[Rfam]
RNA sequence: GGGUCCGGUGGGCCGCCGAACUCCGAAAGAACCAGGGGAAAGAACUACCCACCCGCCCACCCUCCCCGCCGCAAAGGCCCACGUCACCCGUGCGAGUGACGGGCUUGCAGGUGGAGGAGACGGACGGUUACGUUCGCCGCGACAACCGCAAACAGAUACGGCCCCCGGCCGGGACGGCAAUCCCGAACGAGGGCCUGACCGAUCAGGAAGUGAACCCCUUCCCG
Numbered sequence: 001g002g003g004u005c006c007g008g009u010g011g012g013c014c015g016c017c018g019a020a021c022u023c024c025g026a027a028a029g030a031a032c033c034a035g036g037g038g039a040a041a042g043a044a045c046u047a048c049c050c051a052c053c054c055g056c057c058c059a060c061c062c063u064c065c066c067c068g069c070c071g072c073a074a075a076g077g078c079c080c081a082c083g084u085c086a087c088c089c090g091u092g093c094g095a096g097u098g099a100c101g102g103g104c105u106u107g108c109a110g111g112u113g114g115a116g117g118a119g120a121c122g123g124a125c126g127g128u129u130a131c132g133u134u135c136g137c138c139g140c141g142a143c144a145a146c147c148g149c150a151a152a153c154a155g156a157u158a159c160g161g162c163c164c165c166c167g168g169c170c171g172g173g174a175c176g177g178c179a180a181u182c183c184c185g186a187a188c189g190a191g192g193g194c195c196u197g198a199c200c201g202a203u204c205a206g207g208a209a210g211u212g213a214a215c216c217c218c219u220u221c222c223c224g
Base pairs, nucleotide, nucleotide: 007203009201010200014071015070084099085098086097087096089094110138111137112136113135114134160195161194162193163192164191166189167188171184172183173182174181206222207221208220209219210218
The record is a 224-nucleotide sequence from Streptomyces calvus, which matches "Streptomyces sRNA 4677" in Rfam. Located in the intergenic region between anti-sigma factor SCO4677 gene and a putative regulatory protein gene SCO4676. scr4677 expression requires the SCO4677 activity and scr4677 sRNA itself seem to affect the levels of the SCO4676-associated transcripts. By type it is a small RNA. The literature on the family includes a 2014 paper in PLoS One by Hindra et al., "Complex intra-operonic dynamics mediated by a small RNA in Streptomyces coelicolor".